A member of the RNA family "TPP riboswitch aptamer (THI element)" from Anaerobacterium chartisolvens, 105 nucleotides long.
[Rfam]
RNA sequence: UAUUGCUGCUGGGGGUGCCUUAAAAAAGGCUGAGAGAGGCGAGAGUCUUAACCCUUUGAACCUGACAUGGUUAGUACCAUCGUAGGGAAGCGAGUUGAGUUUUGU
Numbered sequence: 001u002a003u004u005g006c007u008g009c010u011g012g013g014g015g016u017g018c019c020u021u022a023a024a025a026a027a028g029g030c031u032g033a034g035a036g037a038g039g040c041g042a043g044a045g046u047c048u049u050a051a052c053c054c055u056u057u058g059a060a061c062c063u064g065a066c067a068u069g070g071u072u073a074g075u076a077c078c079a080u081c082g083u084a085g086g087g088a089a090g091c092g093a094g095u096u097g098a099g100u101u102u103u104g105u
Base pairs, nucleotide, nucleotide: 007092008091009090010089011055012054013053014052017030018029019028020027021026037048038047039046040045061086062085063084064083067080068079069078070077
Dot-bracket structure: ......((((((((..(((((....)))))......((((....))))...)))).....((((..((((......))))..))))..)))).............
For this family Rfam cites "Structural basis of thiamine pyrophosphate analogues binding to the eukaryotic riboswitch" (Thore et al., J Am Chem Soc, 2008).